skipping-rope RNA: a 78-nucleotide RNA. Rfam classes the family as a small RNA. The base pairs follow the family's consensus structure, which is taken from published work. It is one of the family's seed sequences.

[Rfam]
RNA sequence: AAUUAUUGAGGUCGGAAAUGGCUCCCGACGCACCUUUACGGUAUUUGAGAUGUAGGAUACGCCGCCCUACCUAUAAUU
Numbered sequence: 001a002a003u004u005a006u007u008g009a010g011g012u013c014g015g016a017a018a019u020g021g022c023u024c025c026c027g028a029c030g031c032a033c034c035u036u037u038a039c040g041g042u043a044u045u046u047g048a049g050a051u052g053u054a055g056g057a058u059a060c061g062c063c064g065c066c067c068u069a070c071c072u073a074u075a076a077u078u
Base pairs, nucleotide, nucleotide: 001078002077003076004075005074006073008071011029012028013027014026015025019064020063021062022061031047032042033041034040052070053069054068055067056066